RNA sequence: GAAAAGUAUCUGUCGAAUAUUCGUAUAAUUUCGGGAAUAGGGCCCGAACGUUUCUACCGGGCUACCGUAAACAGCCCGACUACGAAUGAUGAUGCAUAGAUA
Numbered sequence: 001g002a003a004a005a006g007u008a009u010c011u012g013u014c015g016a017a018u019a020u021u022c023g024u025a026u027a028a029u030u031u032c033g034g035g036a037a038u039a040g041g042g043c044c045c046g047a048a049c050g051u052u053u054c055u056a057c058c059g060g061g062c063u064a065c066c067g068u069a070a071a072c073a074g075c076c077c078g079a080c081u082a083c084g085a086a087u088g089a090u091g092a093u094g095c096a097u098a099g100a101u102a
Base pairs, nucleotide, nucleotide: 018088019087020086021085022084023083024082025081030048031047032046033045034044035043058078059077060076061075062074063073